[Rfam]
RNA sequence: GUGCAUCCAGUAAGAAUAAUUUAUGAAUUUGCCAAUUAUGAGUUGGGUGCUUUAACCAUUCAGCUAUGGAUGC
Numbered sequence: 001g002u003g004c005a006u007c008c009a010g011u012a013a014g015a016a017u018a019a020u021u022u023a024u025g026a027a028u029u030u031g032c033c034a035a036u037u038a039u040g041a042g043u044u045g046g047g048u049g050c051u052u053u054a055a056c057c058a059u060u061c062a063g064c065u066a067u068g069g070a071u072g073c
Stems, first nucleotide, its partner, number of pairs: 003073006010024005038067003042064008

This 73-nucleotide sequence from Centaurea solstitialis belongs to the Rfam family "Plastid-ycf2 5UTR RNA".
The base pairs follow the family's consensus structure, which was predicted with LocARNA.
The family's RNA type in Rfam is cis-regulatory element.
From the family's description: Plastid ycf2 is a non-coding RNA (ncRNA) recognised in plastids.